Source information:
The record is a 144-nucleotide RNA sequence from Pseudomonas sp. HPB0071, which matches "FMN riboswitch aptamer (RFN element)" in Rfam. Taxonomically the source falls in Pseudomonas (Bacteria, Pseudomonadati, Pseudomonadota, Pseudomonadales). The match comes from Rfam's covariance-model search (109 bits).

[Rfam]
RNA sequence: UCCGGUCUUCAGGGCGGGGCGAGAUUCCCCACCGGCGGUAAACCACGUGGUGGCAAGCCCGCGAGCGCUCCGAUGCGUCGGAGGUCAGCAGAUCUGGUGUGAUUCCAGGGCCGACGGUCAUAGUCCGGAUGAAAGAAGAUGCGU
Numbered sequence: 001u002c003c004g005g006u007c008u009u010c011a012g013g014g015c016g017g018g019g020c021g022a023g024a025u026u027c028c029c030c031a032c033c034g035g036c037g038g039u040a041a042a043c044c045a046c047g048u049g050g051u052g053g054c055a056a057g058c059c060c061g062c063g064a065g066c067g068c069u070c071c072g073a074u075g076c077g078u079c080g081g082a083g084g085u086c087a088g089c090a091g092a093u094c095u096g097g098u099g100u101g102a103u104u105c106c107a108g109g110g111c112c113g114a115c116g117g118u119c120a121u122a123g124u125c126c127g128g129a130u131g132a133a134a135g136a137a138g139a140u141g142c143g144u
Base pairs, nucleotide, nucleotide: 005140006139007138008137009136010135017029018028019027031124032123033113034112035062036061037060038059057111058110065089066088093109094108095107096106097105115127116126117125